Vault RNA: a 102-nucleotide sequence from Pteropus vampyrus. NCBI's taxonomy places the organism under Eukaryota, Amniota, Eutheria, Pteropodinae, Pteropus. The base pairs follow the family's consensus structure, which is taken from published work.
[Rfam]
RNA sequence: GGGCUGGCUUUAGCUCAGCGGUUCCUUCGCAUUCAGCGCUCCAUGCUUAAAAUCACUCUCCAUAGGGUGGUUCGAGACCCGCGGGCGCUUUCCAGUCCUUUU
Numbered sequence: 001g002g003g004c005u006g007g008c009u010u011u012a013g014c015u016c017a018g019c020g021g022u023u024c025c026u027u028c029g030c031a032u033u034c035a036g037c038g039c040u041c042c043a044u045g046c047u048u049a050a051a052a053u054c055a056c057u058c059u060c061c062a063u064a065g066g067g068u069g070g071u072u073c074g075a076g077a078c079c080c081g082c083g084g085g086c087g088c089u090u091u092c093c094a095g096u097c098c099u100u101u102u
Base pairs, nucleotide, nucleotide: 002097003096004095005094006093007092013086014085015084016083018082019081020080021079026076027075028074029073
This family of RNAs are found as part of the enigmatic vault ribonucleoprotein complex.